[Rfam]
This 131-nucleotide RNA sequence from Crypturellus soui belongs to the Rfam family "Small Cajal body specific RNA 15". Rfam 15.1 lists 635 matches to the family in 528 species. About the family: scaRNAs are a specific class of small nuclear RNAs which localise to the Cajal bodies and guide the modification of RNA polymerase II transcribed spliceosomal RNAs U1, U2, U4, U5 and U12. ACA45 belongs to the H/ACA box class of guide RNAs as it has the predicted hairpin-hinge-hairpin-tail structure, the conserved H/ACA-box motifs and is found associated with GAR1. ACA45 is predicted to guide the pseudouridylation of residue U37 of the U2 spliceosomal snRNA. For this family Rfam cites "Cajal body-specific small nuclear RNAs: a novel class of 2'-O-methylation and pseudouridylation guide RNAs" (Darzacq et al., EMBO J, 2002).

RNA sequence: CUGGAGGACUAAGAAAGUGGAGCCAUCGAAAGUGUUUUGGCUCUGCUGAUACUCUCCUCCUACAUUAACUGGUGGAAGAACAAGGCCUGUCUGUGAGAUGGAGUCAGGACUUACUUCCUCUACCUACAAAG
Numbered sequence: 001c002u003g004g005a006g007g008a009c010u011a012a013g014a015a016a017g018u019g020g021a022g023c024c025a026u027c028g029a030a031a032g033u034g035u036u037u038u039g040g041c042u043c044u045g046c047u048g049a050u051a052c053u054c055u056c057c058u059c060c061u062a063c064a065u066u067a068a069c070u071g072g073u074g075g076a077a078g079a080a081c082a083a084g085g086c087c088u089g090u091c092u093g094u095g096a097g098a099u100g101g102a103g104u105c106a107g108g109a110c111u112u113a114c115u116u117c118c119u120c121u122a123c124c125u126a127c128a129a130a131g
Base pairs, nucleotide, nucleotide: 003060004059005058006057007056008055010051011050018045019044020043021042022041023040024039025036027034028033071124072123073122074121075120076119078117082112083111084110086108087107088106089105